[Rfam]
RNA sequence: CCGUGCUAGAUGGGGAGGCAGCGGUGCCCUGUAACUCGCAAUCCGCUACAGCGAGGUUGAAUCCCUGUUCGAGGUCUUGUCGAUGUGAGGUUUGGUCUUUACAUGCGACGUUGACGGUCGGGUCUUCCGCAAUGGAUGCUUAUGAAUCUGGUCAGGUCCGGAAGGGAGCAGCCAUAAGUAAGAUGUUCUAUGUGCCGGAGGGUAGCCUGGCCCGAGUCGUUCUGUAAGGGUGCCACUCGGAUCGCAAUGAUCGGAAACAGGUGCACGG
Numbered sequence: 001c002c003g004u005g006c007u008a009g010a011u012g013g014g015g016a017g018g019c020a021g022c023g024g025u026g027c028c029c030u031g032u033a034a035c036u037c038g039c040a041a042u043c044c045g046c047u048a049c050a051g052c053g054a055g056g057u058u059g060a061a062u063c064c065c066u067g068u069u070c071g072a073g074g075u076c077u078u079g080u081c082g083a084u085g086u087g088a089g090g091u092u093u094g095g096u097c098u099u100u101a102c103a104u105g106c107g108a109c110g111u112u113g114a115c116g117g118u119c120g121g122g123u124c125u126u127c128c129g130c131a132a133u134g135g136a137u138g139c140u141u142a143u144g145a146a147u148c149u150g151g152u153c154a155g156g157u158c159c160g161g162a163a164g165g166g167a168g169c170a171g172c173c174a175u176a177a178g179u180a181a182g183a184u185g186u187u188c189u190a191u192g193u194g195c196c197g198g199a200g201g202g203u204a205g206c207c208u209g210g211c212c213c214g215a216g217u218c219g220u221u222c223u224g225u226a227a228g229g230g231u232g233c234c235a236c237u238c239g240g241a242u243c244g245c246a247a248u249g250a251u252c253g254g255a256a257a258c259a260g261g262u263g264c265a266c267g268g
Base pairs, nucleotide, nucleotide: 001268002267003266004265005264006263009058010057011056012030013029014028015027017025019023035055036054037053038052039051064261065260066259067258068257069256073252074251075250076249081244082243083242084241086239087238088237089236093232094231097229098228099227100226101225102224105222107218108217109216116212117211118210119209120208121207122206123205124201125200126199127198128197129196130192131191133190134189135188136187139182140181141180142179143178149174150173151172152171157166158165159164
The family of this 268-nucleotide sequence from Paenibacillus selenitireducens is "Bacterial large signal recognition particle RNA". Rfam's curators write: The signal recognition particle (SRP) is a universally conserved ribonucleoprotein involved in the co-translational targeting of proteins to membranes. The match comes from Rfam's covariance-model search (197 bits). Clan: SRP clan. The source organism's lineage runs through Bacteria, Bacillati, Caryophanales, Paenibacillaceae and Paenibacillus. Rfam classes the family as a non-coding RNA gene.